[Rfam]
RNA sequence: GCGACAAACUCAGAAUAACACACAUGCGCCGAUAUCAAGGUUCUGGGUGCCGGGUGGAUUAUUGAUCAACAAGUCUGCAACUAAAAUCGAGUAAGUUGUUGUUGGUUGUCCAGCGGGUUGAAUCUUGAGGGUGUAUGGAGGCCUAAC
Numbered sequence: 001g002c003g004a005c006a007a008a009c010u011c012a013g014a015a016u017a018a019c020a021c022a023c024a025u026g027c028g029c030c031g032a033u034a035u036c037a038a039g040g041u042u043c044u045g046g047g048u049g050c051c052g053g054g055u056g057g058a059u060u061a062u063u064g065a066u067c068a069a070c071a072a073g074u075c076u077g078c079a080a081c082u083a084a085a086a087u088c089g090a091g092u093a094a095g096u097u098g099u100u101g102u103u104g105g106u107u108g109u110c111c112a113g114c115g116g117g118u119u120g121a122a123u124c125u126u127g128a129g130g131g132u133g134u135a136u137g138g139a140g141g142c143c144u145a146a147c
Base pairs, nucleotide, nucleotide: 023137024136025135026134027133028132029131030130035128036127037126038125039124041122042121043120049118050117051116053114
RNA: t44 RNA
Organism: Oleiphilus messinensis